[Rfam]
Nucleotides: 072
Stems, first nucleotide, its partner, number of pairs: 001071004
Number, partner (000 for none) and nucleotide at each position: 001071g002070u003069g004068c005000a006000g007000u008000g009000a010000u011000g012000c013000a014000g015000a016000u017000a018000c019000a020000u021000c022000a023000a024000c025000a026000c027000a028000u029000c030000a031000u032000u033000c034000u035000g036000a037000a038000a039000a040000g041000a042000c043000a044000g045000a046000u047000g048000u049000g050000u051000a052000g053000a054000a055000a056000a057000u058000a059000a060000a061000u062000g063000a064000c065000u066000g067000a068004g069003c070002a071001c072000a
Rfam assigns this 72-nucleotide RNA sequence from Echinops telfairi to the family "Small nucleolar RNA SNORD63". Its family is annotated with nucleolus and RNA processing in the Gene Ontology. The sequence is in the family's curated seed alignment. The family's consensus secondary structure was predicted with PFOLD. By type it is a C/D-box small nucleolar RNA. Rfam 15.1 lists 795 matches to the family in 549 species. On this family, see Galardi et al., Mol Cell Biol 2002: "Purified box C/D snoRNPs are able to reproduce site-specific 2'-O-methylation of target RNA in vitro". From the family's description: snoRNA U63 is found in both humans and mice.